[Rfam]
RNA: Molybdenum/Tungsten riboswitch aptamer (Moco RNA motif)
Organism: Aminomonas paucivorans
RNA sequence: CGGGUUGUUCGACCCCGAGCCGCAGGCCCUACCGGGAAUCAACCCCACGGGUCGCGGCCGACAGGGUGGCGCGGGAAACGGCGCCGCCUUCCAGCGAGAAGGGGUUGCUUCGUACCGGUU
Numbered sequence: 001c002g003g004g005u006u007g008u009u010c011g012a013c014c015c016c017g018a019g020c021c022g023c024a025g026g027c028c029c030u031a032c033c034g035g036g037a038a039u040c041a042a043c044c045c046c047a048c049g050g051g052u053c054g055c056g057g058c059c060g061a062c063a064g065g066g067u068g069g070c071g072c073g074g075g076a077a078a079c080g081g082c083g084c085c086g087c088c089u090u091c092c093a094g095c096g097a098g099a100a101g102g103g104g105u106u107g108c109u110u111c112g113u114a115c116c117g118g119u120u
Base pairs, nucleotide, nucleotide: 004113011106012105013104014103015102016101019058020057021056022055023054025053026052027051028050029049034045035044036043064089065088066087067086068085069084070083071082072081074079090097091096